[Rfam]
RNA sequence: CAUGCAAACCACAAUGUUUUUCUUCUCAUUCUUUUUUAGCUUCCCCCCCUCCGGGAGAUGAUUCGUCCUGAAAGAAUGAAUGAGAAGACGAACAGAAAAGCCUCCCGAACGGGAGGCUUUUUUAUU
Numbered sequence: 001c002a003u004g005c006a007a008a009c010c011a012c013a014a015u016g017u018u019u020u021u022c023u024u025c026u027c028a029u030u031c032u033u034u035u036u037u038a039g040c041u042u043c044c045c046c047c048c049c050u051c052c053g054g055g056a057g058a059u060g061a062u063u064c065g066u067c068c069u070g071a072a073a074g075a076a077u078g079a080a081u082g083a084g085a086a087g088a089c090g091a092a093c094a095g096a097a098a099a100g101c102c103u104c105c106c107g108a109a110c111g112g113g114a115g116g117c118u119u120u121u122u123u124a125u126u
Stems, first nucleotide, its partner, number of pairs: 016093004021088011033076002036073002042056004057067004097120010
Rfam assigns this 126-nucleotide sequence from Tatumella morbirosei to the family "Phenylalanine leader peptide". Gene Ontology term of the family: cellular amino acid metabolic process. The family's consensus secondary structure was predicted with CMfinder. The family has 71 seed sequences and 379 matches in Rfam 15.1. Rfam classes the family as a cis-regulatory leader. It scores 103 bits against the family's covariance model. Lineage of the source: Bacteria > Pseudomonadota > Gammaproteobacteria > Enterobacterales > Tatumella. On this family, see Gurvich et al., Nucleic Acids Res 2010: "Two groups of phenylalanine biosynthetic operon leader peptides genes: a high level of apparently incidental frameshifting in decoding Escherichia coli pheL".